[Rfam]
RNA sequence: GGAAGUAGGCCUUCCGAAGUCGGCUUGCAGGAGCGGACUUCAAACCACCCGGUGCUGCUGCAUCCAAAAGGUGUGGUGGUGAGCGACCGAGGAAAAGUCAUCCCUGAGGAUGGCAGG
Numbered sequence: 001g002g003a004a005g006u007a008g009g010c011c012u013u014c015c016g017a018a019g020u021c022g023g024c025u026u027g028c029a030g031g032a033g034c035g036g037a038c039u040u041c042a043a044a045c046c047a048c049c050c051g052g053u054g055c056u057g058c059u060g061c062a063u064c065c066a067a068a069a070g071g072u073g074u075g076g077u078g079g080u081g082a083g084c085g086a087c088c089g090a091g092g093a094a095a096a097g098u099c100a101u102c103c104c105u106g107a108g109g110a111u112g113g114c115a116g117g
Stems, first nucleotide, its partner, number of pairs: 001015005016041006023034004045117002048092002050089004054080002057077003061073004097114006
Dot-bracket structure: (((((.....)))))((((((.((((....)))).))))))...((.((((((((.(((.((((.....)))).))).)).....)))).))....((((((......)))))).))
RNA: Group II catalytic intron D1-D4-2
Organism: Pseudomonas aeruginosa